[Rfam]
RNA sequence: GAACUCCUCCCGGGAGAGAGCAGGUAUCCAAUCCUGCCGCCGAAGGCGCAACCGCCCCGGAAACGCUCAGGCAAAUGGACCGGGAGAGAGAC
Numbered sequence: 001g002a003a004c005u006c007c008u009c010c011c012g013g014g015a016g017a018g019a020g021c022a023g024g025u026a027u028c029c030a031a032u033c034c035u036g037c038c039g040c041c042g043a044a045g046g047c048g049c050a051a052c053c054g055c056c057c058c059g060g061a062a063a064c065g066c067u068c069a070g071g072c073a074a075a076u077g078g079a080c081c082g083g084g085a086g087a088g089a090g091a092c
Stems, first nucleotide, its partner, number of pairs: 007086007020037004039072003042068002046066003052060002
RNA: Glycine riboswitch aptamer
Organism: Hyphomonas sp. L-53-1-40